[Rfam]
A member of the RNA family "mir-181 microRNA precursor family" from Theropithecus gelada, 82 nucleotides long. Its family is annotated with RISC complex and miRNA-mediated post-transcriptional gene silencing in the Gene Ontology. The literature on the family includes a 2001 paper in Cell by Ambros, "microRNAs: tiny regulators with great potential". Pairs were carried over by alignment from the consensus structure, which was predicted with PFOLD.
RNA sequence: AGGUCACAAUCAACAUUCAUUGCUGUCGGUGGGUUGAACCGUGUAGACAAGCUCACUGAACAAUGAAUGCAACUGUGGCCCC
Dot-bracket structure: .(((((((.....(((((((((...((((((.(((..............))).)))))).)))))))))....))))).)).